[Rfam]
Nucleotides: 117
Base pairs, nucleotide, nucleotide: 001079002078003077004076009039011038012037013036014035015034016033022029040066041065042064045062046061047060049057050056082106083105085103086102087101088100089099090098
Number, partner (000 for none) and nucleotide at each position: 001079g002078g003077u004076c005000a006000u007000g008000a009039g010000a011038a012037c013036c014035a015034g016033u017000g018000u019000c020000a021000a022029g023000c024000c025000c026000c027000g028000g029022c030000a031000u032000u033016a034015c035014u036013g037012g038011u039009c040066g041065g042064c043000a044000a045062c046061c047060c048000u049057c050056c051000u052000c053000c054000g055000c056050g057049g058000u059000g060047g061046g062045g063000u064042g065041c066040u067000c068000c069000g070000g071000g072000u073000g074000a075000c076004g077003a078002c079001c080000u081000g082106g083105c084000g085103g086102c087101g088100c089099c090098c091000u092000g093000g094000u095000c096000c097000c098090g099089g100088g101087c102086g103085c104000g105083g106082c107000a108000a109000g110000u111000g112000c113000g114000g115000a116000u117000u